Shown here is a 121-nucleotide sequence from Haemophilus influenzae, a member of the family "Ribosomal S15 leader". The family is grouped with related families in Rfam's "Ribosomal Protein S15 Leader clan". Its family is annotated with regulation of translation, ncRNA-mediated in the Gene Ontology. By type it is a cis-regulatory leader.
RNA sequence: UAUCAUCGCUGAGUUAGAGAUCGGCGAAUGAUGUAUUAACAACACUACCUUUUAGGAGUAAAAAAUGUCUCUAAGUACUGAAAAAAAAGCAGCAAUCGUUGCUGAAUUUGGUCGUGAUGCG
Numbered sequence: 001u002a003u004c005a006u007c008g009c010u011g012a013g014u015u016a017g018a019g020a021u022c023g024g025c026g027a028a029u030g031a032u033g034u035a036u037u038a039a040c041a042a043c044a045c046u047a048c049c050u051u052u053u054a055g056g057a058g059u060a061a062a063a064a065a066u067g068u069c070u071c072u073a074a075g076u077a078c079u080g081a082a083a084a085a086a087a088a089g090c091a092g093c094a095a096u097c098g099u100u101g102c103u104g105a106a107u108u109u110g111g112u113c114g115u116g117a118u119g120c121g
Stems, first nucleotide, its partner, number of pairs: 007026006051075003055072004